[Rfam]
Shown here is a 71-nucleotide RNA from Coturnix japonica, a member of the family "Small nucleolar RNA SNORD56".
RNA sequence: CUGCUGUGAUGGGAAGAUUUUUCGUCAACAGCAUUUCACACAGUGAAUGUUGAUACGUCUGGGCUGAGCAG
Number, nucleotide and partner (000 for none) at each position: 001c000002u070003g069004c068005u000006g000007u000008g026009a025010u024011g023012g000013g000014a000015a000016g000017a000018u000019u000020u000021u000022u000023c011024g010025u009026c008027a000028a000029c000030a000031g000032c000033a000034u000035u000036u000037c000038a000039c000040a000041c000042a000043g000044u000045g000046a000047a000048u000049g000050u000051u000052g000053a000054u000055a000056c000057g000058u000059c000060u000061g000062g000063g000064c000065u000066g000067a000068g004069c003070a002071g000

The literature on the family includes a 2002 paper in Mol Cell Biol by Galardi et al., "Purified box C/D snoRNPs are able to reproduce site-specific 2'-O-methylation of target RNA in vitro". By type it is a C/D-box small nucleolar RNA. The base pairs follow the family's consensus structure, which was predicted with PFOLD. Rfam links the family to the GO terms RNA processing and nucleolus.